This 114-nucleotide sequence from Mytilus galloprovincialis belongs to the Rfam family "Vault RNA".

RNA sequence: GUGUUGGCUUAGUCGAGUGGUUACUUCGCUUUGAAUUGGUACAAACUUCAACUGUCACUUGAAACUUAACGGGUUCGAAUCCCGUGGAAACCACUGACACAGUCCAGCAUUUUU
Numbered sequence: 001g002u003g004u005u006g007g008c009u010u011a012g013u014c015g016a017g018u019g020g021u022u023a024c025u026u027c028g029c030u031u032u033g034a035a036u037u038g039g040u041a042c043a044a045a046c047u048u049c050a051a052c053u054g055u056c057a058c059u060u061g062a063a064a065c066u067u068a069a070c071g072g073g074u075u076c077g078a079a080u081c082c083c084g085u086g087g088a089a090a091c092c093a094c095u096g097a098c099a100c101a102g103u104c105c106a107g108c109a110u111u112u113u114u
Base pairs, nucleotide, nucleotide: 002109003108004107005106006105007104012098013097014096015095017094018093019092020091025079026078027077028076

It scores 54 bits against the family's covariance model. This family of RNAs are found as part of the enigmatic vault ribonucleoprotein complex. The complex consists of a major vault protein (MVP), two minor vault proteins (VPARP and TEP1), and several small untranslated RNA molecules. Rfam classes the family as a non-coding RNA gene.